The family of this 73-nucleotide sequence from Drosophila mojavensis is "mir-2 microRNA precursor family".

[Rfam]
RNA sequence: AGUGUCAUCAAAAAGGGCUGAGAAUGAUAUUUCUGUAAUUGAAUUGUAUCACAGCCAGCUUUGAUGGGCACUG
Numbered sequence: 001a002g003u004g005u006c007a008u009c010a011a012a013a014a015g016g017g018c019u020g021a022g023a024a025u026g027a028u029a030u031u032u033c034u035g036u037a038a039u040u041g042a043a044u045u046g047u048a049u050c051a052c053a054g055c056c057a058g059c060u061u062u063g064a065u066g067g068g069c070a071c072u073g
Stems, first nucleotide, its partner, number of pairs: 005067008016056005022050002027047002
Its family is annotated with RISC complex and miRNA-mediated post-transcriptional gene silencing in the Gene Ontology.
Pairs were carried over by alignment from the consensus structure, which was predicted with PFOLD.